[Rfam]
Record summary
A member of the RNA family "c-di-AMP riboswitch aptamer (ydaO/yuaA leader)" from Nonomuraea pusilla, 137 nucleotides long. The match comes from Rfam's covariance-model search (104 bits).
Nucleotides: 137
Stems, first nucleotide, its partner, number of pairs: 011122004018034006035117006045054002055102003063078004081096004
Number, partner (000 for none) and nucleotide at each position: 001000g002000g003000c004000c005000g006000g007000c008000u009000g010000g011122c012121g013120c014119c015000g016000a017000a018034u019033c020032c021031c022030g023029g024000g025000a026000g027000u028000u029023c030022c031021g032020g033019g034018a035117a036116c037115c038114g039113a040112g041000g042000a043000c044000c045054c046053a047000c048000u049000u050000c051000u052000c053046u054045g055102g056101g057100g058000u059000g060000a061000a062000u063078c064077c065076g066075g067000c068000a069000c070000u071000c072000g073000u074000g075066c076065c077064g078063g079000u080000a081096g082095g083094g084093c085000a086000u087000c088000u089000c090000c091000a092000c093084g094083c095082c096081c097000g098000a099000a100057c101056c102055c103000g104000u105000c106000a107000g108000c109000u110000a111000a112040c113039u114038c115037g116036g117035u118000a119014g120013g121012c122011g123000a124000g125000a126000u127000g128000g129000a130000g131000a132000g133000g134000a135000c136000a137000c
Lineage of the source: Bacteria > Bacillati > Actinomycetota > Streptosporangiales > Nonomuraea.